[Rfam]
RNA: mir-593 microRNA precursor family
Organism: Macaca mulatta
RNA sequence: CCCCCAGAGUGUGUCAGGCAUCAGCCAGGCAUCGCUCAGCCCCUUUCCCUCUGGGGGAGCAAGGAGUGGUGCUGGGUUUGUCUCUGCUGGGGUUUCUCCU
Numbered sequence: 001c002c003c004c005c006a007g008a009g010u011g012u013g014u015c016a017g018g019c020a021u022c023a024g025c026c027a028g029g030c031a032u033c034g035c036u037c038a039g040c041c042c043c044u045u046u047c048c049c050u051c052u053g054g055g056g057g058a059g060c061a062a063g064g065a066g067u068g069g070u071g072c073u074g075g076g077u078u079u080g081u082c083u084c085u086g087c088u089g090g091g092g093u094u095u096c097u098c099c100u
Stems, first nucleotide, its partner, number of pairs: 002092006015086004020081002023078004028073010043059007